Rfam assigns this 68-nucleotide RNA from Medicago truncatula to the family "MIR2629 microRNA precursor family".
RNA sequence: GUUUGAGGUUUCCUCGGCAGUUAACUGCCGAAGUUUUCAGUUUUCCUCGGUAGUUAACUGCCGAAGUU
Numbered sequence: 001g002u003u004u005g006a007g008g009u010u011u012c013c014u015c016g017g018c019a020g021u022u023a024a025c026u027g028c029c030g031a032a033g034u035u036u037u038c039a040g041u042u043u044u045c046c047u048c049g050g051u052a053g054u055u056a057a058c059u060g061c062c063g064a065a066g067u068u
Stems, first nucleotide, its partner, number of pairs: 012066001014064018